This 226-nucleotide RNA from Pirellulimonas nuda belongs to the Rfam family "Group II catalytic intron D1-D4-6". About the family: Group II introns are found in rRNA, tRNA and mRNA of organelles in fungi, plants and protists, and also in mRNA in bacteria. Pairs were carried over by alignment from the consensus structure.
[Rfam]
RNA sequence: AGAGUUUCUUACGAAGAAGAUUUCGCCAAUCACUUUGGCCUCCGGCGGAGGGACAGAUCGGGCAACCGCUUUGGACUGAGCGUCCGCGCAGGGGGAAGCGUAGGCCAGCUAAUGAGCUCCGAAAUCAGAUUUUUCAGGUGCCGACCCAGUCAUAGCAUGGGGAAGGCAACAUCGGUCAUGCCGCUACUGGCAAGGCGUGACUCGGACCUGGCGGAGUCGUUGAACC
Numbered sequence: 001a002g003a004g005u006u007u008c009u010u011a012c013g014a015a016g017a018a019g020a021u022u023u024c025g026c027c028a029a030u031c032a033c034u035u036u037g038g039c040c041u042c043c044g045g046c047g048g049a050g051g052g053a054c055a056g057a058u059c060g061g062g063c064a065a066c067c068g069c070u071u072u073g074g075a076c077u078g079a080g081c082g083u084c085c086g087c088g089c090a091g092g093g094g095g096a097a098g099c100g101u102a103g104g105c106c107a108g109c110u111a112a113u114g115a116g117c118u119c120c121g122a123a124a125u126c127a128g129a130u131u132u133u134u135c136a137g138g139u140g141c142c143g144a145c146c147c148a149g150u151c152a153u154a155g156c157a158u159g160g161g162g163a164a165g166g167c168a169a170c171a172u173c174g175g176u177c178a179u180g181c182c183g184c185u186a187c188u189g190g191c192a193a194g195g196c197g198u199g200a201c202u203c204g205g206a207c208c209u210g211g212c213g214g215a216g217u218c219g220u221u222g223a224a225c226c
Base pairs, nucleotide, nucleotide: 012037013036014035015034016033019031020030021029022028023193025191026190039094040093041092042091045087046086047085048084050081051077052076054073055072056071057070059068060067061066114218116217117216118215119214120213121212134211135210136209137208138207139206140167141166142165145161146160147159148158172205173204174203175202176200177199178198179197180196181195182194